[Rfam]
Nucleotides: 066
Base pairs, nucleotide, nucleotide: 001066002065003064004063005062006061007060008059009058010057011056012055013054014053016051020047021046022045023044024043025042026041027040
Number, partner (000 for none) and nucleotide at each position: 001066u002065g003064g004063g005062u006061u007060u008059g009058a010057c011056a012055u013054c014053a015000u016051c017000a018000u019000a020047c021046u022045u023044g024043g025042g026041a027040u028000g029000u030000a031000g032000g033000a034000a035000a036000u037000a038000a039000a040027g041026u042025c043024c044023c045022a046021a047020g048000c049000a050000g051016g052000u053014u054013g055012a056011u057010g058009u059008u060007a061006g062005g063004c064003c065002c066001a